[Rfam]
The record is a 130-nucleotide RNA from Equus caballus, which matches "Small nucleolar RNA SNORA33" in Rfam. Rfam classes the family as an H/ACA-box small nucleolar RNA. Rfam links the family to the GO terms nucleolus and RNA processing. Lineage of the source: Eukaryota > Sarcopterygii > Perissodactyla > Equidae > Equus. From the family's description: ACA33 is a member of the H/ACA class of snoRNA that guide the sites of modification of uridines to pseudouridines. The family has 28 seed sequences and 1,176 matches in Rfam 15.1.
RNA sequence: AAGCCAGCCAAUGAAUCUGCUUACCUGAAUGUGUUUUGGCAGAAAUUUAGAGCAAGCUGGCAAUAGUAAAGCCAUGUUACGAGCCUUAACGACGUUGAAGUCGUUAAGGUCCCUGAAAGUGGCCACAAGA
Numbered sequence: 001a002a003g004c005c006a007g008c009c010a011a012u013g014a015a016u017c018u019g020c021u022u023a024c025c026u027g028a029a030u031g032u033g034u035u036u037u038g039g040c041a042g043a044a045a046u047u048u049a050g051a052g053c054a055a056g057c058u059g060g061c062a063a064u065a066g067u068a069a070a071g072c073c074a075u076g077u078u079a080c081g082a083g084c085c086u087u088a089a090c091g092a093c094g095u096u097g098a099a100g101u102c103g104u105u106a107a108g109g110u111c112c113c114u115g116a117a118a119g120u121g122g123c124c125a126c127a128a129g130a
Base pairs, nucleotide, nucleotide: 003061004060005059006058007057016043017042018041019040020039071123072122073121074120083110084109085108086107087106088105089104091102092101093100